[Rfam]
RNA sequence: CAGUGGGGUAGAGGCGCGAUAUUUAACAGUCUGAUUGGAGCGGAGGAGCUUUGAAAAUCAUGAGAAGGAAAUAUCGCCGAAGUGGUAGUGUAUCCUCAAUACAUACUGCUGGGUCUGUAGUGAAGAACUGCAGGACUGUCUUAUCAGACAACCCGGUCUGAUAAGUUGUGCUAUCUCAACU
Numbered sequence: 001c002a003g004u005g006g007g008g009u010a011g012a013g014g015c016g017c018g019a020u021a022u023u024u025a026a027c028a029g030u031c032u033g034a035u036u037g038g039a040g041c042g043g044a045g046g047a048g049c050u051u052u053g054a055a056a057a058u059c060a061u062g063a064g065a066a067g068g069a070a071a072u073a074u075c076g077c078c079g080a081a082g083u084g085g086u087a088g089u090g091u092a093u094c095c096u097c098a099a100u101a102c103a104u105a106c107u108g109c110u111g112g113g114u115c116u117g118u119a120g121u122g123a124a125g126a127a128c129u130g131c132a133g134g135a136c137u138g139u140c141u142u143a144u145c146a147g148a149c150a151a152c153c154c155g156g157u158c159u160g161a162u163a164a165g166u167u168g169u170g171c172u173a174u175c176u177c178a179a180c181u
Base pairs, nucleotide, nucleotide: 006176007175008174009173010172011171016077017076018075019074020073021072022071023070024069032060033059034058035057036056081110082109083108084107085106086105088104089103090102091101092100111137112136114134115133116132117131118130119129120128121127140165141164142163143162144161145160146159147158148157
Shown here is a 181-nucleotide sequence from Anaerocolumna chitinilytica, a member of the family "Lysine riboswitch aptamer". A search with the family's covariance model found it, with a score of 96 bits. Rfam links the family to the GO term lysine biosynthetic process. The organism belongs to Anaerocolumna, within Bacteria.